[Rfam]
RNA sequence: CCACUCUGGAAAGUGAACCGAACCUGGUUCCGCCGACGGUGAAAGCCGCCCUUCUCAAUCGGGCGCGUGAAACUCUCAGGCUCAUGACAGAGGGGGA
Dot-bracket structure: ((.(((((......((((........)))).(((((..(.(...((....................))....).))).)))......))))).))..